A member of the RNA family "Small nucleolar RNA R160" from Striga hermonthica, 74 nucleotides long. The family has 9 seed sequences and 799 matches in Rfam 15.1. Pairs were carried over by alignment from the consensus structure. Rfam's curators write: snoR160 is a C/D box small nucleolar RNA, which acts as a methylation guide for 25S ribosomal RNA in plants. snoR160 has been alternatively named snoZ270 in rice. Rfam classes the family as a C/D-box small nucleolar RNA. Its family is annotated with nucleolus and RNA processing in the Gene Ontology.
RNA sequence: AGCAAAAUGAUGAGGAAUUUUUUAUCCGAAUCUCAUUGUGGAAUUUUUAUAUCCUUCAAAGUUCUCUGAUUGCU
Number, nucleotide and partner (000 for none) at each position: 001a074002g073003c072004a071005a070006a000007a000008u000009g000010a000011u000012g000013a000014g000015g000016a000017a000018u000019u000020u000021u000022u000023u000024a000025u000026c000027c000028g000029a000030a000031u000032c000033u000034c000035a000036u000037u000038g000039u000040g000041g000042a000043a000044u000045u000046u000047u000048u000049a000050u000051a000052u000053c000054c000055u000056u000057c000058a000059a000060a000061g000062u000063u000064c000065u000066c000067u000068g000069a000070u005071u004072g003073c002074u001
The match comes from Rfam's covariance-model search (63 bits).